[Rfam]
The family of this 79-nucleotide RNA sequence is "Xanthine riboswitch aptamer (NMT1 RNA)". The sequence is in the family's curated seed alignment. A reference for the family is Yu and Breaker (2020), "A bacterial riboswitch class senses xanthine and uric acid to regulate genes associated with purine oxidation", RNA.
RNA sequence: GGCAAGAGUAGAAGCGUUCACUGCGUUGCCCCCUGUGCCAUCCUGCACGGGGCGAUGCCAGUCGGAAAUUGCUCUUGAA
Numbered sequence: 001g002g003c004a005a006g007a008g009u010a011g012a013a014g015c016g017u018u019c020a021c022u023g024c025g026u027u028g029c030c031c032c033c034u035g036u037g038c039c040a041u042c043c044u045g046c047a048c049g050g051g052g053c054g055a056u057g058c059c060a061g062u063c064g065g066a067a068a069u070u071g072c073u074c075u076u077g078a079a
Stems, first nucleotide, its partner, number of pairs: 005075006015064001018066002021061003024057009